[Rfam]
RNA: HIV-1 stem-loop 4 packaging signal
Organism: Lentivirus humimdef1
RNA sequence: UGGGUGCGAGAGCGUCAGUA
Numbered sequence: 001u002g003g004g005u006g007c008g009a010g011a012g013c014g015u016c017a018g019u020a
Stems, first nucleotide, its partner, number of pairs: 003016005